[Rfam]
RNA sequence: AACGGCCACGCGUAUUCUUGGGUUACUAGCACGCUGUUCAUGUUGUUAUUGCUUGAGAAUACACGUAGUUAGC
Numbered sequence: 001a002a003c004g005g006c007c008a009c010g011c012g013u014a015u016u017c018u019u020g021g022g023u024u025a026c027u028a029g030c031a032c033g034c035u036g037u038u039c040a041u042g043u044u045g046u047u048a049u050u051g052c053u054u055g056a057g058a059a060u061a062c063a064c065g066u067a068g069u070u071a072g073c
Stems, first nucleotide, its partner, number of pairs: 004070002008066003012062012025050001027048005032042002
RNA: mir-137 microRNA precursor family
Organism: Ceratitis capitata